RNA sequence: CGUGGCAAGUGAUGAACACAUUAUUUAUAUGCAAAACUCUGAAUUAUGUGUUGACCAAAAACUCCGCUUAUUAUCUGAUGCCCUU
Numbered sequence: 001c002g003u004g005g006c007a008a009g010u011g012a013u014g015a016a017c018a019c020a021u022u023a024u025u026u027a028u029a030u031g032c033a034a035a036a037c038u039c040u041g042a043a044u045u046a047u048g049u050g051u052u053g054a055c056c057a058a059a060a061a062c063u064c065c066g067c068u069u070a071u072u073a074u075c076u077g078a079u080g081c082c083c084u085u
Base pairs, nucleotide, nucleotide: 004082005081006080007079
Dot-bracket structure: ...((((.......................................................................))))...

A member of the RNA family "Small nucleolar RNA R16" from Digitaria exilis, 85 nucleotides long. Pairs were carried over by alignment from the consensus structure, which was predicted with PFOLD. The match comes from Rfam's covariance-model search (74 bits). Taxonomically the source falls in Digitaria (Eukaryota, Magnoliopsida, Mesangiospermae, Panicodae). Its family is annotated with RNA processing and nucleolus in the Gene Ontology. Rfam classes the family as a C/D-box small nucleolar RNA.